Selenocysteine transfer RNA: a 91-nucleotide sequence from Fervidicola ferrireducens. Its family is annotated with triplet codon-amino acid adaptor activity in the Gene Ontology. NCBI's taxonomy places the organism under Bacteria, Bacillati, Bacillota, Thermosediminibacterales, Fervidicola.
RNA sequence: GGGGGCAGAUAGGUCCUGGUGGGCCUCCUGGUCUUCAAAACCAGCGUCGGGGGCAAAACCUCCGAGGUGGGUUCGAUUCCCACAUGCUCCC
Numbered sequence: 001g002g003g004g005g006c007a008g009a010u011a012g013g014u015c016c017u018g019g020u021g022g023g024c025c026u027c028c029u030g031g032u033c034u035u036c037a038a039a040a041c042c043a044g045c046g047u048c049g050g051g052g053g054c055a056a057a058a059c060c061u062c063c064g065a066g067g068u069g070g071g072u073u074c075g076a077u078u079c080c081c082a083c084a085u086g087c088u089c090c091c
Base pairs, nucleotide, nucleotide: 001091002090003089004088005087006086007085008083011026012025013024014023015022016021028044029043030042031041032040047065048064049063050062051061068082069081070080071079